A member of the RNA family "TPP riboswitch aptamer (THI element)" from Herbiconiux oxytropis, 108 nucleotides long. The source organism's lineage runs through Bacteria, Actinomycetota, Micrococcales, Microbacteriaceae and Herbiconiux. Vitamin B(1) in its active form thiamin pyrophosphate (TPP) is an essential coenzyme that is synthesised by coupling of pyrimidine and thiazole moieties in bacteria. The previously detected thiamin-regulatory element, thi box was extended, resulting in a new, highly conserved RNA secondary structure, the THI element, which is widely distributed in eubacteria and also occurs in some archaea. Analysis of operon structures identified a large number of new candidate thiamin-regulated genes, mostly transporters, in various prokaryotic organisms. On this family, see Sudarsan et al., RNA 2003: "Metabolite-binding RNA domains are present in the genes of eukaryotes". Gene Ontology term of the family: thiamine pyrophosphate binding.

[Rfam]
RNA sequence: GUGGAGCCACACGGGAGUCCGGUGAGCCGGGCUGAGAGGAAGGUUCUCAACCUUCGACCGUCGAACCUGAUCUGGAUCAUGCCAGCGCAGGGAGGCAUCUCAGGCCCC
Numbered sequence: 001g002u003g004g005a006g007c008c009a010c011a012c013g014g015g016a017g018u019c020c021g022g023u024g025a026g027c028c029g030g031g032c033u034g035a036g037a038g039g040a041a042g043g044u045u046c047u048c049a050a051c052c053u054u055c056g057a058c059c060g061u062c063g064a065a066c067c068u069g070a071u072c073u074g075g076a077u078c079a080u081g082c083c084a085g086c087g088c089a090g091g092g093a094g095g096c097a098u099c100u101c102a103g104g105c106c107c108c
Base pairs, nucleotide, nucleotide: 006096007095008094011061012060013059014058017032018031019030020029021028039055040054041053042052043051044050045049066091067090068089069088072085073084074083075082